[Rfam]
RNA sequence: UAAAAUAAAUAGAGGAUACAUCGUAUAAUCUCGAGAAUAUGGCUCGGGAGUCUCUACCAAGCUACCGUAAAUAGCUUGACUACGAUGGGUAAUGCGGGGGAG
Numbered sequence: 001u002a003a004a005a006u007a008a009a010u011a012g013a014g015g016a017u018a019c020a021u022c023g024u025a026u027a028a029u030c031u032c033g034a035g036a037a038u039a040u041g042g043c044u045c046g047g048g049a050g051u052c053u054c055u056a057c058c059a060a061g062c063u064a065c066c067g068u069a070a071a072u073a074g075c076u077u078g079a080c081u082a083c084g085a086u087g088g089g090u091a092a093u094g095c096g097g098g099g100g101a102g
Base pairs, nucleotide, nucleotide: 019087020086021085022084023083024082025081029049030048031047032046033045034044035043058078059077060076061075062074063073064072
Background: Shown here is a 102-nucleotide sequence from Anoxybacillus flavithermus, a member of the family "Purine riboswitch aptamer". The base pairs follow the family's consensus structure, which is taken from published work. Rfam's curators write: Riboswitches are metabolite binding domains within certain messenger RNAs that serve as precision sensors for their corresponding targets. The source organism's lineage runs through Bacteria, Bacillati, Bacillota, Bacilli and Anoxybacillus.